The family of this 149-nucleotide RNA from Blautia liquoris is "Clostridiales-1 RNA". It is annotated as a small RNA. Taxonomically the source falls in Blautia (Bacteria, Bacillati, Bacillota, Clostridia).

[Rfam]
RNA sequence: UACCCCAGGAUCCCAAAGUCUUGCUUUCAUGCUUGCAUGAAAAAGCAAGACCUUGGGAUCCGCAAAAACAUGAGAAUGUAACCCGUUAGGGUGGAAUUCGAAUGUUUUUAAGAUUGUGUGAGCACGUAGUGCGGAAUAAGGAGAACGUA
Numbered sequence: 001u002a003c004c005c006c007a008g009g010a011u012c013c014c015a016a017a018g019u020c021u022u023g024c025u026u027u028c029a030u031g032c033u034u035g036c037a038u039g040a041a042a043a044a045g046c047a048a049g050a051c052c053u054u055g056g057g058a059u060c061c062g063c064a065a066a067a068a069c070a071u072g073a074g075a076a077u078g079u080a081a082c083c084c085g086u087u088a089g090g091g092u093g094g095a096a097u098u099c100g101a102a103u104g105u106u107u108u109u110a111a112g113a114u115u116g117u118g119u120g121a122g123c124a125c126g127u128a129g130u131g132c133g134g135a136a137u138a139a140g141g142a143g144a145a146c147g148u149a
Stems, first nucleotide, its partner, number of pairs: 001149003009060004015054002018051010028039004064109008074099004081092004114139004122132004
Pairs were carried over by alignment from the consensus structure, which is taken from published work.